RNA: ZMP/ZTP riboswitch aptamer (pfl RNA motif)
RNA sequence: GGGGCGAGCCGUGACUGGCGUGUCGAGAUGGGCGUAACCAUCGGGGAGCGGCUUCGUCACAUGGACGUGUGCCGCGCGCCUGGGCUUCUUGG
Numbered sequence: 001g002g003g004g005c006g007a008g009c010c011g012u013g014a015c016u017g018g019c020g021u022g023u024c025g026a027g028a029u030g031g032g033c034g035u036a037a038c039c040a041u042c043g044g045g046g047a048g049c050g051g052c053u054u055c056g057u058c059a060c061a062u063g064g065a066c067g068u069g070u071g072c073c074g075c076g077c078g079c080c081u082g083g084g085c086u087u088c089u090u091g092g
Stems, first nucleotide, its partner, number of pairs: 003058004007053006015045002017080005028041004069087001071085003